The family of this 136-nucleotide sequence from Fimbriimonas ginsengisoli is "c-di-AMP riboswitch aptamer (ydaO/yuaA leader)". It scores 97 bits against the family's covariance model. About the family: This family represents a conserved RNA structure found upstream of the ydaO and yuaA genes in Bacillus subtilis and related genes in other bacteria.
RNA sequence: CAAAGCCAAACGCCGAAUUCCCCGAGAGGGGGAACGGGGGACCCGGAACUUAGGGGUGAACGCGAUCUCAUUGAUCGCUAGGGUAACUCUUGGCCCGAACCCGACAGCUAACCCCGUAGGCGACGUGAGAGUCGGA
Numbered sequence: 001c002a003a004a005g006c007c008a009a010a011c012g013c014c015g016a017a018u019u020c021c022c023c024g025a026g027a028g029g030g031g032g033a034a035c036g037g038g039g040g041a042c043c044c045g046g047a048a049c050u051u052a053g054g055g056g057u058g059a060a061c062g063c064g065a066u067c068u069c070a071u072u073g074a075u076c077g078c079u080a081g082g083g084u085a086a087c088u089c090u091u092g093g094c095c096c097g098a099a100c101c102c103g104a105c106a107g108c109u110a111a112c113c114c115c116g117u118a119g120g121c122g123a124c125g126u127g128a129g130a131g132u133c134g135g136a
Base pairs, nucleotide, nucleotide: 011122012121013120014119018033019032020031021030022029023028034117035116036115037114038113039112044053054102055101056100062078063077064076065075081096082095083094084093
Dot-bracket structure: ..........((((...((((((....))))))((((((....(........)(((.....((((.........))))..((((........))))...))).........)))))).))))..............
NCBI's taxonomy places the organism under Bacteria, Bacillati, Armatimonadota, Fimbriimonadia, Fimbriimonas ginsengisoli.